[Rfam]
RNA sequence: UCAUUCCUUGUCAUGGGGUGAAGGACAGCUCAAUGAACGUAUAGUGAGAGCCGUCCUGCCAACACCAUAAUCAACACAAACGCAUCACCUGACUUUUCAAAGUCAGACAAUGGUGCAAUUUUUGGAAAC
Numbered sequence: 001u002c003a004u005u006c007c008u009u010g011u012c013a014u015g016g017g018g019u020g021a022a023g024g025a026c027a028g029c030u031c032a033a034u035g036a037a038c039g040u041a042u043a044g045u046g047a048g049a050g051c052c053g054u055c056c057u058g059c060c061a062a063c064a065c066c067a068u069a070a071u072c073a074a075c076a077c078a079a080a081c082g083c084a085u086c087a088c089c090u091g092a093c094u095u096u097u098c099a100a101a102g103u104c105a106g107a108c109a110a111u112g113g114u115g116c117a118a119u120u121u122u123u124g125g126a127a128a129c
Stems, first nucleotide, its partner, number of pairs: 006018004020059001022057002025054002028051004037045002082116006090105006
Shown here is a 129-nucleotide sequence from Triplophysa rosa, a member of the family "U4atac minor spliceosomal RNA". A reference for the family is Shukla et al. (2002), "Domains of human U4atac snRNA required for U12-dependent splicing in vivo", Nucleic Acids Res. U4atac is an essential component of the minor U12-type spliceosome complex which is required for removal of the rarer class of eukaryotic introns (AT-AC, U12-type). The base pairs follow the family's consensus structure, which is taken from published work. By type it is a spliceosomal small nuclear RNA. Rfam 15.1 lists 1,648 matches to the family in 818 species. Rfam links the family to the GO terms spliceosomal tri-snRNP complex assembly, U4atac snRNP and pre-mRNA 5'-splice site binding. The match comes from Rfam's covariance-model search (99 bits). Its Rfam clan is "U4 clan".